RNA sequence: GGCUGGUCCAAGUGCAGUGGUGUUUGCAGCUAGUUGAUGACAAACAGUUACAGAUUUCUUUGUUCCUUCUCCACUCCCACUAUUUCACUUGACUAGUUAAA
Numbered sequence: 001g002g003c004u005g006g007u008c009c010a011a012g013u014g015c016a017g018u019g020g021u022g023u024u025u026g027c028a029g030c031u032a033g034u035u036g037a038u039g040a041c042a043a044a045c046a047g048u049u050a051c052a053g054a055u056u057u058c059u060u061u062g063u064u065c066c067u068u069c070u071c072c073a074c075u076c077c078c079a080c081u082a083u084u085u086c087a088c089u090u091g092a093c094u095a096g097u098u099a100a101a
Base pairs, nucleotide, nucleotide: 002097003096004095005094006093007092008091010090011089014086016081017080018079019078020077022076028064029063030062032060033059